[Rfam]
RNA: M-box riboswitch aptamer (ykoK leader)
Organism: Candidatus Enterococcus clewellii
RNA sequence: UAGAUGAAUUGUUAGGUGAGGCUCCUAUAUGGACAUAUGCUGCUGCCGCGAAAGAAUCGAGAGACUCUUAGUUGGUUGAACAGGGAUGGUCGUGAAGGUCAUCCAUAAUGUAGCUGAUAAGAAAUUAUCUACGCCCUAUAGUGCUAAAGCUCAACGAUGGAGAAGAUAA
Numbered sequence: 001u002a003g004a005u006g007a008a009u010u011g012u013u014a015g016g017u018g019a020g021g022c023u024c025c026u027a028u029a030u031g032g033a034c035a036u037a038u039g040c041u042g043c044u045g046c047c048g049c050g051a052a053a054g055a056a057u058c059g060a061g062a063g064a065c066u067c068u069u070a071g072u073u074g075g076u077u078g079a080a081c082a083g084g085g086a087u088g089g090u091c092g093u094g095a096a097g098g099u100c101a102u103c104c105a106u107a108a109u110g111u112a113g114c115u116g117a118u119a120a121g122a123a124a125u126u127a128u129c130u131a132c133g134c135c136c137u138a139u140a141g142u143g144c145u146a147a148a149g150c151u152c153a154a155c156g157a158u159g160g161a162g163a164a165g166a167u168a169a
Stems, first nucleotide, its partner, number of pairs: 005165001009161002011155002013096001015151003020145003025141005031135002039114005045076004054067002057064002084104003089099003116129003
Dot-bracket structure: ....(...(((([.(((..(((..(((((.((......(((((.((((.....((.((....)).)).....)))).......(((..(((....])))..))).....))))).(((........)))....)).))))).)))...)))..))....))...)....